RNA sequence: CCCGAAAAAGGCAAACCAUUCGAAAGGGUGGGACGCAAAGCCACUGGCCUACGUCUUCCGAGGGAGGAUAGGGCGGCAGGGUUGCCGGAG
Numbered sequence: 001c002c003c004g005a006a007a008a009a010g011g012c013a014a015a016c017c018a019u020u021c022g023a024a025a026g027g028g029u030g031g032g033a034c035g036c037a038a039a040g041c042c043a044c045u046g047g048c049c050u051a052c053g054u055c056u057u058c059c060g061a062g063g064g065a066g067g068a069u070a071g072g073g074c075g076g077c078a079g080g081g082u083u084g085c086c087g088g089a090g
Base pairs, nucleotide, nucleotide: 001090003087004086011036012035016031017030018029019028020027021026034076039083040082041081042080044079045078046077047074048073049072
RNA: c-di-GMP-I-GGC riboswitch aptamer